[Rfam]
RNA sequence: UGUUGACAGAAACUCUUUCCCUGUUGCACUACUGUUAGUCGCAGCUAGCAGUGCAAUAAUGAAAGGGCAUCGGUCAGUCG
Numbered sequence: 001u002g003u004u005g006a007c008a009g010a011a012a013c014u015c016u017u018u019c020c021c022u023g024u025u026g027c028a029c030u031a032c033u034g035u036u037a038g039u040c041g042c043a044g045c046u047a048g049c050a051g052u053g054c055a056a057u058a059a060u061g062a063a064a065g066g067g068c069a070u071c072g073g074u075c076a077g078u079c080g
Stems, first nucleotide, its partner, number of pairs: 001080002005075003009071002013067007022058009